[Rfam]
RNA sequence: GAAAAUUGCAAUGGUUCUCGUGGUGGUGCGAUCGCGCAUGGGCAGGAUGGUUUGACCAUCCGGCGUUAAGCACCCAUGCGCGGCAAACAGGCUCCUGACGGGGCCUUUUUUUACGCCCGGAU
Numbered sequence: 001g002a003a004a005a006u007u008g009c010a011a012u013g014g015u016u017c018u019c020g021u022g023g024u025g026g027u028g029c030g031a032u033c034g035c036g037c038a039u040g041g042g043c044a045g046g047a048u049g050g051u052u053u054g055a056c057c058a059u060c061c062g063g064c065g066u067u068a069a070g071c072a073c074c075c076a077u078g079c080g081c082g083g084c085a086a087a088c089a090g091g092c093u094c095c096u097g098a099c100g101g102g103g104c105c106u107u108u109u110u111u112u113a114c115g116c117c118c119g120g121a122u
Base pairs, nucleotide, nucleotide: 007028009026030117032115033082034081035080036079037078038077039076040075041074042073045061046060047059048058049057050056063071064070087107089106090105091104092103093102094101095100
Rfam assigns this 122-nucleotide RNA sequence from Phyllobacterium myrsinacearum to the family "Rhizobiales sRNA Atu_C8". A search with the family's covariance model found it, with a score of 107 bits. It is annotated as a small RNA. Taxonomically the source falls in Phyllobacterium (Bacteria, Pseudomonadota, Alphaproteobacteria, Phyllobacteriaceae).